[Rfam]
RNA sequence: UUGUCCUGGUUUAUGCUUUCCCUGCUUCUUGUAUGCAGUUCUAACAAGACAGGACACACAGCAAUCUUCAGUUUAGGAGGGCCAUCCUAAGAGUAGGGCUGACUCUUAAUAGGCAUGAAUGUCAAU
Numbered sequence: 001u002u003g004u005c006c007u008g009g010u011u012u013a014u015g016c017u018u019u020c021c022c023u024g025c026u027u028c029u030u031g032u033a034u035g036c037a038g039u040u041c042u043a044a045c046a047a048g049a050c051a052g053g054a055c056a057c058a059c060a061g062c063a064a065u066c067u068u069c070a071g072u073u074u075a076g077g078a079g080g081g082c083c084a085u086c087c088u089a090a091g092a093g094u095a096g097g098g099c100u101g102a103c104u105c106u107u108a109a110u111a112g113g114c115a116u117g118a119a120u121g122u123c124a125a126u
Stems, first nucleotide, its partner, number of pairs: 002056007010049002029047004067119003071114004077107005083101001085098005
RNA: Small Cajal body specific RNA 11
Organism: Dipodomys ordii